[Rfam]
RNA sequence: CUAUGCAGAGAUAAAAACACAGUCCCGGUCGGUAGUCCGGGCGCAGCGCAAGCUGUCAGUAACCUGCCUCCUUGGUUGUCCGUUCUUUGCGAGACAGAC
Numbered sequence: 001c002u003a004u005g006c007a008g009a010g011a012u013a014a015a016a017a018c019a020c021a022g023u024c025c026c027g028g029u030c031g032g033u034a035g036u037c038c039g040g041g042c043g044c045a046g047c048g049c050a051a052g053c054u055g056u057c058a059g060u061a062a063c064c065u066g067c068c069u070c071c072u073u074g075g076u077u078g079u080c081c082g083u084u085c086u087u088u089g090c091g092a093g094a095c096a097g098a099c
Base pairs, nucleotide, nucleotide: 004091005090006089007088008087009086010085011084022042023041025040026039027038028037043056044055045054046053047052066076067075068074